[Rfam]
RNA sequence: UUCUUAUCUAGAGCAGGCGGAGGGACUGGCCCUAUGAAGCCUCGGCAACCACUGUGUGAUGUAGAUGGUGCUAAUUCCUGCGGCAUUCUAUGUCGAGAGAUGAGGA
Numbered sequence: 001u002u003c004u005u006a007u008c009u010a011g012a013g014c015a016g017g018c019g020g021a022g023g024g025a026c027u028g029g030c031c032c033u034a035u036g037a038a039g040c041c042u043c044g045g046c047a048a049c050c051a052c053u054g055u056g057u058g059a060u061g062u063a064g065a066u067g068g069u070g071c072u073a074a075u076u077c078c079u080g081c082g083g084c085a086u087u088c089u090a091u092g093u094c095g096a097g098a099g100a101u102g103a104g105g106a
Stems, first nucleotide, its partner, number of pairs: 001106008013043001015042004022032003026080001028078002044072004049068002052064003076098001081095006
RNA: SAM riboswitch aptamer (S box leader)
Organism: Paenalicyclobacillus ferrooxydans